Shown here is a 141-nucleotide RNA sequence from Pyxidicoccus fallax, a member of the family "c-di-AMP riboswitch aptamer (ydaO/yuaA leader)". Gene Ontology terms of the family: cyclic-di-AMP binding and regulation of gene expression. A search with the family's covariance model found it, with a score of 91 bits. The source organism's lineage runs through Bacteria, Pseudomonadati, Cystobacterineae, Myxococcaceae and Pyxidicoccus.
[Rfam]
RNA sequence: UGCAUCCAUACGCCGAAUCCCGCCGUCAGCGGGAGUGGGGGACCCAGGUUCGUUGGGGCGAAUCGCUCGAGGUCGAGCGUAGGGCAGGUUCUCUCAGCCCGAGUCCGUCAGCUAACUCCACAGGCGUCGAGGAGAACGCAA
Numbered sequence: 001u002g003c004a005u006c007c008a009u010a011c012g013c014c015g016a017a018u019c020c021c022g023c024c025g026u027c028a029g030c031g032g033g034a035g036u037g038g039g040g041g042a043c044c045c046a047g048g049u050u051c052g053u054u055g056g057g058g059c060g061a062a063u064c065g066c067u068c069g070a071g072g073u074c075g076a077g078c079g080u081a082g083g084g085c086a087g088g089u090u091c092u093c094u095c096a097g098c099c100c101g102a103g104u105c106c107g108u109c110a111g112c113u114a115a116c117u118c119c120a121c122a123g124g125c126g127u128c129g130a131g132g133a134g135a136a137c138g139c140a141a
Base pairs, nucleotide, nucleotide: 011126012125013124014123018034019033020032021031022030023029035121036120037119038118039117040116045055046054056106057105058104064079065078066077067076082100083099084098085097